[Rfam]
RNA sequence: ACGUUGUCAUUGACAGUGUUCAAUACAGUGU
Numbered sequence: 001a002c003g004u005u006g007u008c009a010u011u012g013a014c015a016g017u018g019u020u021c022a023a024u025a026c027a028g029u030g031u
Stems, first nucleotide, its partner, number of pairs: 001031007009024005014018001
Iron response element II: a 31-nucleotide sequence from Eleutherodactylus coqui. A reference for the family is Koeller et al. (1989), "A cytosolic protein binds to structural elements within the iron regulatory region of the transferrin receptor mRNA", Proc Natl Acad Sci U S A. Gene Ontology term of the family: response to iron ion. About the family: IRE, TFRC, SLC40A1, SDHB, SLC11A2, CDC42BPA, ACO2, ALAS2_H.SAPIENS, CDC14A, EPAS1, ALAS2, qoxD, Hao1, NDUFS1, transferrin, Aconitate. By type it is a cis-regulatory element.